[Rfam]
RNA: Archaeal small subunit ribosomal RNA, nucleotides 1 to 498
RNA sequence: AUUCCGGUUGAUCCCGCCGGAGGCCACUGCUAUUGGGAUUCGACUAAGCCAUGCGAGUCUAUGGUUUCGGCCAUGGCGGACGGCUCAUUAACACGUGGUUAACAUACCCUCAGGUGGGGGAUAACCUUGGGAAACUGAGGAUAAUACCCCAUAGAAAAAGCAGUCUGGAAUGAUUCUUUUUCGAAAGCACAUGCGCCUGAGGAUUGGACUGCGCUCGAUUAGGUAGUUGGUGGGGUAAUGGCCCACCAAGCCUACGAUCGGUACGGGCCUUGAGAGAGGGAGCCCGGAGAUGGGGACUGAGACACGGCCCCAGGCCCUACGGGGCGCAGCAGGCGCGAAACCUCCGCAAUGCACGAAAGUGCGACGGGGGGAUCCCAAGUGCUCAUGCACAGCAUGGGCUUUUAUCAAGUGUAAACAGCUUGAGGAAUAAGGGCUGGGCAAGUUCGGUGCCAGCAGCCGCGGUAACACCGACGGCCCGAGUGGUGGCCACUCUUAUUG
Numbered sequence: 001a002u003u004c005c006g007g008u009u010g011a012u013c014c015c016g017c018c019g020g021a022g023g024c025c026a027c028u029g030c031u032a033u034u035g036g037g038a039u040u041c042g043a044c045u046a047a048g049c050c051a052u053g054c055g056a057g058u059c060u061a062u063g064g065u066u067u068c069g070g071c072c073a074u075g076g077c078g079g080a081c082g083g084c085u086c087a088u089u090a091a092c093a094c095g096u097g098g099u100u101a102a103c104a105u106a107c108c109c110u111c112a113g114g115u116g117g118g119g120g121a122u123a124a125c126c127u128u129g130g131g132a133a134a135c136u137g138a139g140g141a142u143a144a145u146a147c148c149c150c151a152u153a154g155a156a157a158a159a160g161c162a163g164u165c166u167g168g169a170a171u172g173a174u175u176c177u178u179u180u181u182c183g184a185a186a187g188c189a190c191a192u193g194c195g196c197c198u199g200a201g202g203a204u205u206g207g208a209c210u211g212c213g214c215u216c217g218a219u220u221a222g223g224u225a226g227u228u229g230g231u232g233g234g235g236u237a238a239u240g241g242c243c244c245a246c247c248a249a250g251c252c253u254a255c256g257a258u259c260g261g262u263a264c265g266g267g268c269c270u271u272g273a274g275a276g277a278g279g280g281a282g283c284c285c286g287g288a289g290a291u292g293g294g295g296a297c298u299g300a301g302a303c304a305c306g307g308c309c310c311c312a313g314g315c316c317c318u319a320c321g322g323g324g325c326g327c328a329g330c331a332g333g334c335g336c337g338a339a340a341c342c343u344c345c346g347c348a349a350u351g352c353a354c355g356a357a358a359g360u361g362c363g364a365c366g367g368g369g370g371g372a373u374c375c376c377a378a379g380u381g382c383u384c385a386u387g388c389a390c391a392g393c394a395u396g397g398g399c400u401u402u403u404a405u406c407a408a409g410u411g412u413a414a415a416c417a418g419c420u421u422g423a424g425g426a427a428u429a430a431g432g433g434c435u436g437g438g439c440a441a442g443u444u445c446g447g448u449g450c451c452a453g454c455a456g457c458c459g460c461g462g463u464a465a466c467a468c469c470g471a472c473g474g475c476c477c478g479a480g481u482g483g484u485g486g487c488c489a490c491u492c493u494u495a496u497u498g
Stems, first nucleotide, its partner, number of pairs: 004020005022488010033378009042336001048334003052331003057077003061074005084289003094213007103206002108202007116150004125140006155181006162174001164173002187194002215261003222252003227249008264286004268279004291312005314325004342368001344367003350363005381399008405423006431477006444471004453460002
Dot-bracket structure: ...(((((.......))))).((((((((((.((((((((((.....(((.(((..(((.(((((....))))))))......(((.......(((((((..((...(((((((.((((.....((((((....))))))......))))....((((((.(.((......))).)))))).....((....)).)))))))..))))))))).(((....(((..((((((((.......)))))))))))......)))..((((((((....))))...))))))).(((((............))))).((((....))))...)))))).).....(.(((...(((((....))))).)))).)))))))))..((((((((...)))))))).....((((((.......)))))).......((((((.......((((.....((....)).......)))))))))).))))))))))..........